[Rfam]
The family of this 125-nucleotide sequence from Molossus molossus is "Small nucleolar RNA SNORA77".
The literature on the family includes a 2006 paper in RNA by Schattner et al., "A computational screen for mammalian pseudouridylation guide H/ACA RNAs".
RNA sequence: GCAGAUGCACUCUGCACCCAGCUGCAGUCCCAGGUGGAUGAUUUUUUCCUCUGCCACAGAAACAUUCCAGGGUACUGUGACUACACUGACAUGACCAGGGUGGUGCGGCUGCCUAGGAUGCGGUG
Numbered sequence: 001g002c003a004g005a006u007g008c009a010c011u012c013u014g015c016a017c018c019c020a021g022c023u024g025c026a027g028u029c030c031c032a033g034g035u036g037g038a039u040g041a042u043u044u045u046u047u048c049c050u051c052u053g054c055c056a057c058a059g060a061a062a063c064a065u066u067c068c069a070g071g072g073u074a075c076u077g078u079g080a081c082u083a084c085a086c087u088g089a090c091a092u093g094a095c096c097a098g099g100g101u102g103g104u105g106c107g108g109c110u111g112c113c114u115a116g117g118a119u120g121c122g123g124u125g
Stems, first nucleotide, its partner, number of pairs: 001054005015040002018037003022033003066117002069114003075108005082102003086098001
Rfam's curators write: ACA63 (SNORA77) is a member of the H/ACA class of snoRNAs that guide the sites of modification of uridines to pseudouridines. Taxonomically the source falls in Molossus (Eukaryota, Euteleostomi, Tetrapoda, Amniota).